[Rfam]
RNA: tRNA
RNA sequence: GCGGGCGUCGCCAAGUGGUUAAGGCAGCGGCUUGUGGUGCCGCCAUCCGGGGGUUCGAAUCCCCUCGCUCGCC
Numbered sequence: 001g002c003g004g005g006c007g008u009c010g011c012c013a014a015g016u017g018g019u020u021a022a023g024g025c026a027g028c029g030g031c032u033u034g035u036g037g038u039g040c041c042g043c044c045a046u047c048c049g050g051g052g053g054u055u056c057g058a059a060u061c062c063c064c065u066c067g068c069u070c071g072c073c
Stems, first nucleotide, its partner, number of pairs: 001072007010025003027043005049065005
Dot-bracket structure: (((((((..(((..........))).(((((.......))))).....(((((.......)))))))))))).